RNA sequence: UGGCUGUAGCUAUAUGGAAAAUAUGAAAUUUUACUGGCCGGUUAUCAUUAAUUUGUUGAUAAAUCUGCUUACCGAACUUCAUAGAUCU
Numbered sequence: 001u002g003g004c005u006g007u008a009g010c011u012a013u014a015u016g017g018a019a020a021a022u023a024u025g026a027a028a029u030u031u032u033a034c035u036g037g038c039c040g041g042u043u044a045u046c047a048u049u050a051a052u053u054u055g056u057u058g059a060u061a062a063a064u065c066u067g068c069u070u071a072c073c074g075a076a077c078u079u080c081a082u083a084g085a086u087c088u
Base pairs, nucleotide, nucleotide: 023082024081025080026079027078029076030075036069037068038067040065041064042063043062044060045059046058047057
Rfam assigns this 88-nucleotide RNA from Artemisia annua to the family "Small nucleolar RNA snoR109". It is annotated as an H/ACA-box small nucleolar RNA. Gene Ontology terms of the family: nucleolus and RNA processing. The base pairs follow the family's consensus structure, which was predicted with WAR. The match comes from Rfam's covariance-model search (67 bits). The organism belongs to Artemisia, within Eukaryota.